A member of the RNA family "A. fumigatus sRNA Afu_254" from Aspergillus tamarii, 149 nucleotides long. The source organism's lineage runs through Eukaryota, Fungi, Pezizomycotina, Eurotiomycetes and Aspergillus subgen. Circumdati. The match comes from Rfam's covariance-model search (101 bits). For this family Rfam cites "Small ncRNA transcriptome analysis from Aspergillus fumigatus suggests a novel mechanism for regulation of protein synthesis" (Jochl et al., Nucleic Acids Res, 2008).
[Rfam]
RNA sequence: AUACCAAACUACUCUACUACGUUCAUUCGAACAAUCCAGUUCAUACCAAUCCCUCCACAACCAUGUCUCCCUGCACCUGCAACUGCUGCUCCGGCGACUGCAACUCUUGCUCUUGCAACUCUUGCAAGGUAUGCACUUGCUUAUCUACC
Numbered sequence: 001a002u003a004c005c006a007a008a009c010u011a012c013u014c015u016a017c018u019a020c021g022u023u024c025a026u027u028c029g030a031a032c033a034a035u036c037c038a039g040u041u042c043a044u045a046c047c048a049a050u051c052c053c054u055c056c057a058c059a060a061c062c063a064u065g066u067c068u069c070c071c072u073g074c075a076c077c078u079g080c081a082a083c084u085g086c087u088g089c090u091c092c093g094g095c096g097a098c099u100g101c102a103a104c105u106c107u108u109g110c111u112c113u114u115g116c117a118a119c120u121c122u123u124g125c126a127a128g129g130u131a132u133g134c135a136c137u138u139g140c141u142u143a144u145c146u147a148c149c
Base pairs, nucleotide, nucleotide: 072096073095074094079089080088081087100125101124102123109116110115